[Rfam]
RNA: Clostridiales-3 RNA
RNA sequence: UAGUAGUCUGAUGGAUUGAAAAAUGAAGGACGAGAAGUUGAAGGAGAUUCUGAGAAAGUGGAAAGAUAAAUAUGUUGCGUAGGAUAAUAACCCAUAGAGGACAGAGAGUGUGUCCUUAUCCUCAAAACUGGCUAAGGGAGGAGAUAGUGUUUCAAAAAUUGAAAUGCGUCAUGUGCCUGUUCCCGGAGAUGAUAAUAUCUUCUUGUACACGGGGCAGUAGGUCGUAUGAAGAAAUCGUGUACCUACA
Numbered sequence: 001u002a003g004u005a006g007u008c009u010g011a012u013g014g015a016u017u018g019a020a021a022a023a024u025g026a027a028g029g030a031c032g033a034g035a036a037g038u039u040g041a042a043g044g045a046g047a048u049u050c051u052g053a054g055a056a057a058g059u060g061g062a063a064a065g066a067u068a069a070a071u072a073u074g075u076u077g078c079g080u081a082g083g084a085u086a087a088u089a090a091c092c093c094a095u096a097g098a099g100g101a102c103a104g105a106g107a108g109u110g111u112g113u114c115c116u117u118a119u120c121c122u123c124a125a126a127a128c129u130g131g132c133u134a135a136g137g138g139a140g141g142a143g144a145u146a147g148u149g150u151u152u153c154a155a156a157a158a159u160u161g162a163a164a165u166g167c168g169u170c171a172u173g174u175g176c177c178u179g180u181u182c183c184c185g186g187a188g189a190u191g192a193u194a195a196u197a198u199c200u201u202c203u204u205g206u207a208c209a210c211g212g213g214g215c216a217g218u219a220g221g222u223c224g225u226a227u228g229a230a231g232a233a234a235u236c237g238u239g240u241a242c243c244u245a246c247a
Stems, first nucleotide, its partner, number of pairs: 006031004015024003093173003097117007119142005143170003147167002150164005186201006205242007225230001